[Rfam]
RNA sequence: GAGUGAAGUGAUGCUUUACCAUCUUUCGGGACUUACUCAAUAAUGGGGAUAUUUAUUUUUUCAACUGAUCACUC
Numbered sequence: 001g002a003g004u005g006a007a008g009u010g011a012u013g014c015u016u017u018a019c020c021a022u023c024u025u026u027c028g029g030g031a032c033u034u035a036c037u038c039a040a041u042a043a044u045g046g047g048g049a050u051a052u053u054u055a056u057u058u059u060u061u062c063a064a065c066u067g068a069u070c071a072c073u074c
Stems, first nucleotide, its partner, number of pairs: 001074006
Rfam assigns this 74-nucleotide RNA sequence from Labrus bergylta to the family "Small nucleolar RNA SNORD2". The match comes from Rfam's covariance-model search (53 bits). NCBI's taxonomy places the organism under Eukaryota, Bilateria, Neopterygii, Clupeocephala, Labrus. It is annotated as a C/D-box small nucleolar RNA. Rfam links the family to the GO terms nucleolus and RNA processing. A reference for the family is Zhou et al. (2004), "Identification of a novel box C/D snoRNA from mouse nucleolar cDNA library", Gene.